[Rfam]
RNA sequence: GCAUGGACGAAUUCUGUUCCAGCUGGUCUGUGAUGGAUACAGUCAGACACCAUGCAAAAGCAUCGUCUCACUUCUGCUUAAUGACUGGAUGAGUGCUUCCCUCAGCCUCAUCAGACUGUGUAGAAAUGAGUACAAAG
Number, nucleotide and partner (000 for none) at each position: 001g055002c054003a053004u052005g051006g050007a000008c000009g000010a000011a000012u000013u000014c042015u041016g040017u039018u000019c000020c000021a000022g000023c000024u000025g000026g000027u000028c000029u000030g000031u000032g000033a000034u000035g000036g000037a000038u000039a017040c016041a015042g014043u000044c000045a000046g000047a000048c000049a000050c006051c005052a004053u003054g002055c001056a000057a000058a000059a000060g000061c000062a000063u000064c000065g000066u000067c130068u129069c128070a000071c000072u125073u124074c123075u122076g121077c120078u000079u000080a000081a000082u000083g000084a119085c118086u000087g116088g112089a111090u110091g109092a108093g107094u105095g000096c000097u000098u000099c000100c000101c000102u000103c000104a000105g094106c000107c093108u092109c091110a090111u089112c088113a000114g000115a000116c087117u000118g085119u084120g077121u076122a075123g074124a073125a072126a000127u000128g069129a068130g067131u000132a000133c000134a000135a000136a000137g000
RNA: Small nucleolar RNA SNORA15